[Rfam]
RNA sequence: GCAGGAGGACGACCUCCCCCAUUCUGGGAUCAGCACUCGGGACGGCCCGC
Numbered sequence: 001g002c003a004g005g006a007g008g009a010c011g012a013c014c015u016c017c018c019c020c021a022u023u024c025u026g027g028g029a030u031c032a033g034c035a036c037u038c039g040g041g042a043c044g045g046c047c048c049g050c
Stems, first nucleotide, its partner, number of pairs: 001020001004017005038049004
Dot-bracket structure: (..(((((....)))))..).................((((....)))).
RNA: Guanidine-II riboswitch aptamer (mini-ykkC)
Organism: Novispirillum itersonii